Rfam assigns this 77-nucleotide sequence from Oikopleura dioica to the family "mir-1490 microRNA precursor family". Rfam links the family to the GO terms miRNA-mediated post-transcriptional gene silencing and RISC complex. The source organism's lineage runs through Eukaryota, Tunicata, Copelata, Oikopleuridae and Oikopleura. The family's consensus secondary structure was predicted with RNAalifold.
RNA sequence: AAAAUUAGGCAGUGAGUUGAUAGCGCCCUGAACUGCGAAUUUCACCGUCCCGGGACUAUCGUUACUGUCCCAUUUUC
Numbered sequence: 001a002a003a004a005u006u007a008g009g010c011a012g013u014g015a016g017u018u019g020a021u022a023g024c025g026c027c028c029u030g031a032a033c034u035g036c037g038a039a040u041u042u043c044a045c046c047g048u049c050c051c052g053g054g055a056c057u058a059u060c061g062u063u064a065c066u067g068u069c070c071c072a073u074u075u076u077c
Base pairs, nucleotide, nucleotide: 008069009068010067011066012065013064014063015062018061019060020059021058022057023056026054028053029052030051